The record is a 144-nucleotide RNA sequence from Ornithorhynchus anatinus, which matches "Small nucleolar RNA SNORD10" in Rfam. Rfam links the family to the GO terms nucleolus and RNA processing. The family's consensus secondary structure was predicted with WAR. The family's RNA type in Rfam is C/D-box small nucleolar RNA. The family has 22 seed sequences and 433 matches in Rfam 15.1. For this family Rfam cites "RNomics: an experimental approach that identifies 201 candidates for novel, small, non-messenger RNAs in mouse" (Huttenhofer et al., EMBO J, 2001).
RNA sequence: GCUCUGUGAUGAUCCCCCAUGCGUGUCAUCUGAGCCCGGACGCCCCAGCCCACCCGGCCCCCGGAGGCGUUCUGCUCCCUGGGGCCGUCGGCGGGGCCGGGGGCUUCCCGGCGUGUGAUCAGACCUGUGAAAGCUGAGGAGAGC
Dot-bracket structure: ((((......................................((((.((((..........................................)))).))))......................................))))
Numbered sequence: 001g002c003u004c005u006g007u008g009a010u011g012a013u014c015c016c017c018c019a020u021g022c023g024u025g026u027c028a029u030c031u032g033a034g035c036c037c038g039g040a041c042g043c044c045c046c047a048g049c050c051c052a053c054c055c056g057g058c059c060c061c062c063g064g065a066g067g068c069g070u071u072c073u074g075c076u077c078c079c080u081g082g083g084g085c086c087g088u089c090g091g092c093g094g095g096g097c098c099g100g101g102g103g104c105u106u107c108c109c110g111g112c113g114u115g116u117g118a119u120c121a122g123a124c125c126u127g128u129g130a131a132a133g134c135u136g137a138g139g140a141g142a143g144c
Stems, first nucleotide, its partner, number of pairs: 001144004043102004048097004